[Rfam]
RNA sequence: UUUUAUUACGUGCUUCCAGAGCUCUUCAUUGUGGUUUCAGCAAUAUGAGGAGCUCUGCGAGCAUGUAAUAAAA
Number, nucleotide and partner (000 for none) at each position: 001u000002u072003u071004u070005a069006u068007u067008a066009c065010g064011u063012g062013c061014u060015u059016c000017c057018a056019g055020a054021g053022c052023u051024c050025u049026u048027c047028a046029u045030u000031g000032u042033g041034g000035u000036u000037u000038c000039a000040g000041c033042a032043a000044u000045a029046u028047g027048a026049g025050g024051a023052g022053c021054u020055c019056u018057g017058c000059g015060a014061g013062c012063a011064u010065g009066u008067a007068a006069u005070a004071a003072a002073a000
The family of this 73-nucleotide RNA from Equus caballus is "mir-1597 microRNA precursor family".
Rfam 15.1 lists 144 matches to the family in 142 species.
It is one of the family's seed sequences.